[Rfam]
RNA sequence: UUUUUGAAUCAACUGCUAUAUUUGAAAAAUAAUAUAGAGGAAACUCCACGCUUGCACAUUCUGUGAUGAAUGUAGUGUUUGUGCUAAAGGAAAAAAUAACUUUAGGCAUCUUUUUUUGGUGACGACUUGAAUUAACCUAAGUGCUAUGCAUAUGGUGAUUUCUUUAAAGUGCCACAGAGACGAAUAGCUAGAAAUAGUGAAAUGGAACGGGUAAACUCCACAAGCAAGAAACUCAAAUUAUGGUAGAGGAGCUAAAAGAUUGAGAAACGAAUCAAUCUUUUGGAUCACUUUUUAAAGUGAUAGAUAGAUAGUUGAUGCGCUUUUGCGUACAGAACGUGGGUUAUGAUA
Dot-bracket structure: ...(..((((((((.((((((..........))))))....[[[.[[[[[(((((((((((......)))))).....(((((((((((..........))))))(((((.......)))).)((.........(((...(((.....)))..)))............(((((.............((((....))))...........)))..))))))))))))))...(((...........)))...(((((((..................)))))))((((((......))))))........))))))).(((....))).......]]]]]]]].)...)
RNA: Bacterial RNase P class B
Organism: Spiroplasma gladiatoris